[Rfam]
RNA sequence: GUGAAUCAUCCAUUUGUACCGUAGACAGUAGGUGUGUAUAACACUUAAUUUCCUACCGAGGACAACGGAAUUCAGAUUCUUUUUAAGAUGAUGACUUUCUGCCUCUAUGUCUGCAUGGACUAUAGAGGCUUUUUUCGGUAUAAAU
Numbered sequence: 001g002u003g004a005a006u007c008a009u010c011c012a013u014u015u016g017u018a019c020c021g022u023a024g025a026c027a028g029u030a031g032g033u034g035u036g037u038a039u040a041a042c043a044c045u046u047a048a049u050u051u052c053c054u055a056c057c058g059a060g061g062a063c064a065a066c067g068g069a070a071u072u073c074a075g076a077u078u079c080u081u082u083u084u085a086a087g088a089u090g091a092u093g094a095c096u097u098u099c100u101g102c103c104u105c106u107a108u109g110u111c112u113g114c115a116u117g118g119a120c121u122a123u124a125g126a127g128g129c130u131u132u133u134u135u136c137g138g139u140a141u142a143a144a145u
Base pairs, nucleotide, nucleotide: 028056029055030054031053032052034044035043036042101129102128103127104126105125106124107123108122109121